Description
A member of the RNA family "Plastid-ccsA-ndhD-1 3UTR RNA" from Camellia sinensis, 57 nucleotides long. The family has 488 seed sequences and 1,322 matches in Rfam 15.1. The family's consensus secondary structure was predicted with LocARNA. Its Rfam clan is "Plastid-ccsA_ndhD 3UTR RNA clan". Plastid-ccsA-ndhD-1 is a non-coding RNA (ncRNA) recognised in plastids.

[Rfam]
RNA sequence: AAGCCGGUGAGAACCAUGUAAAUCACUACACUACUUGAUUCAAAUGAUUCUCACAAA
Numbered sequence: 001a002a003g004c005c006g007g008u009g010a011g012a013a014c015c016a017u018g019u020a021a022a023u024c025a026c027u028a029c030a031c032u033a034c035u036u037g038a039u040u041c042a043a044a045u046g047a048u049u050c051u052c053a054c055a056a057a
Stems, first nucleotide, its partner, number of pairs: 007054007015046003019042001021040005